The family of this 51-nucleotide sequence from Methanospirillum lacunae is "eL15-Euryarchaeota ribosomal protein leader".
Lineage of the source: Archaea > Methanobacteriota > Methanomicrobia > Methanospirillaceae > Methanospirillum.
A search with the family's covariance model found it, with a score of 42 bits.
The base pairs follow the family's consensus structure, which is taken from published work.
By type it is a cis-regulatory leader.

RNA sequence: CGGGACAAGUCCCGUUUAGGAAUGUAGCCUGAUUACAGGCUGAACCUUGGA
Numbered sequence: 001c002g003g004g005a006c007a008a009g010u011c012c013c014g015u016u017u018a019g020g021a022a023u024g025u026a027g028c029c030u031g032a033u034u035a036c037a038g039g040c041u042g043a044a045c046c047u048u049g050g051a
Stems, first nucleotide, its partner, number of pairs: 001014005018047003026041005